The record is a 91-nucleotide sequence from Mikania micrantha, which matches "Small nucleolar RNA snoR31/Z110/Z27" in Rfam.
Rfam links the family to the GO terms nucleolus and RNA processing.
About the family: This family contains several related snoRNAs including R31, Z27 and Z110.
A reference for the family is Barneche et al. (2001), "Identification of 66 box C/D snoRNAs in Arabidopsis thaliana: extensive gene duplications generated multiple isoforms predicting new ribosomal RNA 2'-O-methylation sites", J Mol Biol.
Nucleotides: 091
Stems, first nucleotide, its partner, number of pairs: 001091007044048001
Number, partner (000 for none) and nucleotide at each position: 001091g002090u003089c004088a005087u006086c007085a008000a009000a010000u011000g012000a013000u014000g015000a016000u017000a018000a019000a020000g021000u022000a023000a024000u025000a026000a027000a028000u029000c030000u031000u032000a033000g034000g035000a036000c037000a038000c039000c040000a041000u042000u043000g044048g045000a046000c047000a048044c049000a050000a051000c052000u053000u054000u055000a056000g057000u058000u059000g060000u061000g062000g063000g064000u065000g066000a067000g068000a069000a070000u071000a072000c073000a074000u075000u076000u077000u078000u079000u080000c081000c082000u083000g084000a085007u086006g087005a088004u089003g090002a091001c